[Rfam]
RNA sequence: UAGGGUAGCCUCUGACCCUACUUAGUUCAACCAAAUGAACUAAAAUUUCAAAAGUAGUGUGAAUUCUGAAAGUUUAGUUCACUUUGUUGAACUAAGGAGGGUCGGAGGGUACCCUC
Numbered sequence: 001u002a003g004g005g006u007a008g009c010c011u012c013u014g015a016c017c018c019u020a021c022u023u024a025g026u027u028c029a030a031c032c033a034a035a036u037g038a039a040c041u042a043a044a045a046u047u048u049c050a051a052a053a054g055u056a057g058u059g060u061g062a063a064u065u066c067u068g069a070a071a072g073u074u075u076a077g078u079u080c081a082c083u084u085u086g087u088u089g090a091a092c093u094a095a096g097g098a099g100g101g102u103c104g105g106a107g108g109g110u111a112c113c114c115u116c
Stems, first nucleotide, its partner, number of pairs: 002115006009108011021096011033084002036081008
Shown here is a 116-nucleotide RNA from Triticum aestivum, a member of the family "MIR5070 microRNA precursor family". The base pairs follow the family's consensus structure, which was predicted with RNAalifold. Taxonomically the source falls in Triticum (Eukaryota, Mesangiospermae, Poales, Triticinae).